[Rfam]
RNA: mir-9242 microRNA precursor family
Organism: Myotis lucifugus
RNA sequence: GGCCUCCCUCUGUGGGGCGAUCAAUCAUGGGGCCCCCAGAUUGAUCGCUUCUCAGAGGGAGGCC
Numbered sequence: 001g002g003c004c005u006c007c008c009u010c011u012g013u014g015g016g017g018c019g020a021u022c023a024a025u026c027a028u029g030g031g032g033c034c035c036c037c038a039g040a041u042u043g044a045u046c047g048c049u050u051c052u053c054a055g056a057g058g059g060a061g062g063c064c
Base pairs, nucleotide, nucleotide: 001064002063003062004061005060006059007058008057009056010055011054012053014051015050016049017048018047019046020045021044022043023042024041025040026039029036030035